[Rfam]
RNA sequence: CCUGCGGUUAGACGGAAAGACCCCGUGCACCUUUACUAUAGCUUUACACUGGUAUUCGUAUCGGCAUGUGUAGGAUAGGUGGUAGACUUUGAAGCAGAGGCGCUAGCCUCUGUGGAGUCAUCCUUGAAAUACCACCCUUGUUGAUAUGGAUGUCUAACUGCAGUCCGUUAUCCGGAUUCAGGACAGUGUAUGGUGGGUAGUUUGACUGGGGCGGUCGCCUCCUAAAGAGUAACGGAGGCGCGCGAUGGUAGGCUCAGAACGGUCGGAAAUCGUUCGUCGAGUGCAAUGGCAUAAGCCUGCCUGACUGUGAGACUGACAAGUCGAGCAGAGUCGAAAGACGGUCAUAGUGAUCCGGUGGUUCCGUGUGGAAGGGCCAUCGCUCAACGGAUAAAAGGUACGCCGGGGAUAACAGGCUGAUGACCCCCAAGAGUUCAUAUCGACGGGGUUGUUUGGCACCUCGAUGUCGACUCAUCGCAUCCUGGGGCUGGAGCAGGUCCCAAGGGUAUGGCUGUUCGCCAUUUAAAGCGGUACGUGAGUUGGGUUCAGAACGUCGUGAGACAGUUCGGUCCCUAUCUGCCGUGGGUGUA
Dot-bracket structure: ((((((((.(((.((......((((.(((((((.((((...((.((((..((((((((((((((((.(.........(((((..(((......((((((((....))))))))...)))............)))))).))))))))))))))))...(((.((((((.....))))))))).....)))).))....))))..((((.....))))((((((...........))))))(.((....((((((((.((((((.......))))))...))((......))....))))))....((((..(((......)))..)))).(((....))).))..........(((((((.((........))))))))).....)......)))))..))))))........(((.((((((((...((.......))...)))))))..))))..........(((((((((((..((.((((((......))))))...)).(((((.....))))).....)))))..)..)))).).....(((((((....))).))))....))..)))))))))))....
Bacterial large subunit ribosomal RNA: a 587-nucleotide part of an RNA from Candidatus Tokpelaia sp. JSC161. The source organism's lineage runs through Bacteria, Pseudomonadati, Alphaproteobacteria, Hyphomicrobiales and Candidatus Tokpelaia.